[Rfam]
RNA sequence: AGGCAACGAUGAUGACAGGAAUUGUGGCUGUCUGUAAUGUUUGUUACUGCCUGGAGACACCAGUCCCUCUAAACUGACGUUGCCG
Dot-bracket structure: .((((((.......................................................................)))))).
Numbered sequence: 001a002g003g004c005a006a007c008g009a010u011g012a013u014g015a016c017a018g019g020a021a022u023u024g025u026g027g028c029u030g031u032c033u034g035u036a037a038u039g040u041u042u043g044u045u046a047c048u049g050c051c052u053g054g055a056g057a058c059a060c061c062a063g064u065c066c067c068u069c070u071a072a073a074c075u076g077a078c079g080u081u082g083c084c085g
Stems, first nucleotide, its partner, number of pairs: 002084006
This 85-nucleotide RNA from Chloroceryle aenea belongs to the Rfam family "Small nucleolar RNA SNORD127".
Rfam 15.1 lists 541 matches to the family in 527 species.
Its family is annotated with nucleolus and RNA processing in the Gene Ontology.
The family's RNA type in Rfam is C/D-box small nucleolar RNA.
The base pairs follow the family's consensus structure, which was predicted with WAR.